[Rfam]
RNA sequence: UGGAUAGCUCCGAGCUGCCGUCUGACCCCCCGACCCGACGGCAGCUCGGGGCAUCCU
Numbered sequence: 001u002g003g004a005u006a007g008c009u010c011c012g013a014g015c016u017g018c019c020g021u022c023u024g025a026c027c028c029c030c031c032g033a034c035c036c037g038a039c040g041g042c043a044g045c046u047c048g049g050g051g052c053a054u055c056c057u
Stems, first nucleotide, its partner, number of pairs: 002056004007052016
Shown here is a 57-nucleotide RNA sequence from Mycolicibacterium sarraceniae, a member of the family "F6 TB sRNA". The source organism's lineage runs through Bacteria, Bacillati, Actinomycetota, Mycobacteriales and Mycobacterium (subgen. Mycolicibacterium). A reference for the family is Arnvig and Young (2009), "Identification of small RNAs in Mycobacterium tuberculosis", Mol Microbiol.